[Rfam]
RNA sequence: GGGCGUGUAGCUCAGCGGUAGAGCACUUGGUUUACACCCAUGUGGUCGGGGGUUCGAUCCCCUCCGCGCCCA
Dot-bracket structure: (((((((..((((.......)))).(.(((.......))).).....(((((.......)))))))))))).
Shown here is a 72-nucleotide RNA sequence from Nocardioides jejuensis, a member of the family "tRNA". Rfam describes the family as follows. Transfer RNA (tRNA) molecules are approximately 80 nucleotides in length. Rfam classes the family as a transfer RNA.